The family of this 172-nucleotide RNA sequence from Artemisia annua is "small nucleolar RNA snoR143".
For this family Rfam cites "Mining small RNA sequencing data: a new approach to identify small nucleolar RNAs in Arabidopsis" (Chen and Wu, Nucleic Acids Res, 2009).
RNA sequence: CAAUGCAUACAUUAAAAGCCUGGCUUUUUUAUGUGUGUUAAGUUUGUUAUUAAUUGGUGAUAAACUUUUCAUCAUGUUAAAAGUUAGGCAGCGGCCAGACAACCGUAGAGAUGGUUUCCACAGAUGAACAGUUUUUUCCAUCUGUUUGUCUACUAACUUCCAUCUCACAUCA
Numbered sequence: 001c002a003a004u005g006c007a008u009a010c011a012u013u014a015a016a017a018g019c020c021u022g023g024c025u026u027u028u029u030u031a032u033g034u035g036u037g038u039u040a041a042g043u044u045u046g047u048u049a050u051u052a053a054u055u056g057g058u059g060a061u062a063a064a065c066u067u068u069u070c071a072u073c074a075u076g077u078u079a080a081a082a083g084u085u086a087g088g089c090a091g092c093g094g095c096c097a098g099a100c101a102a103c104c105g106u107a108g109a110g111a112u113g114g115u116u117u118c119c120a121c122a123g124a125u126g127a128a129c130a131g132u133u134u135u136u137u138c139c140a141u142c143u144g145u146u147u148g149u150c151u152a153c154u155a156a157c158u159u160c161c162a163u164c165u166c167a168c169a170u171c172a
Stems, first nucleotide, its partner, number of pairs: 002061001004059003008053001012049001014047001016045004021040004026035001108166007127147002129144003